The record is a 94-nucleotide sequence from Aristolochia contorta, which matches "Plastid-rps12 3UTR RNA" in Rfam.
Plastid rpl20 is a non-coding RNA (ncRNA) recognised in plastids. It was found in the three prime untranslated region (3UTR) of rps12 gene, its 3UTR location sugest a role in transcript maduration.
Rfam 15.1 lists 1,710 matches to the family in 1,426 species.
The family's RNA type in Rfam is cis-regulatory element.
The sequence is in the family's curated seed alignment.
RNA sequence: GGUUUCCAUUGGUGCAAAUCCCAUCACCUCAAUUUGAGAUGAAAAGCAAUUCCCCAUUGGUAGCAAGUGGUAUCAUUAAGCGGGGAAAUUCUAU
Numbered sequence: 001g002g003u004u005u006c007c008a009u010u011g012g013u014g015c016a017a018a019u020c021c022c023a024u025c026a027c028c029u030c031a032a033u034u035u036g037a038g039a040u041g042a043a044a045a046g047c048a049a050u051u052c053c054c055c056a057u058u059g060g061u062a063g064c065a066a067g068u069g070g071u072a073u074c075a076u077u078a079a080g081c082g083g084g085g086a087a088a089u090u091c092u093a094u
Stems, first nucleotide, its partner, number of pairs: 009023001011021002052085004056076002059073001063071002
Dot-bracket structure: ........(.((.......)).)............................((((((.(...((.....)).).)).....)))).........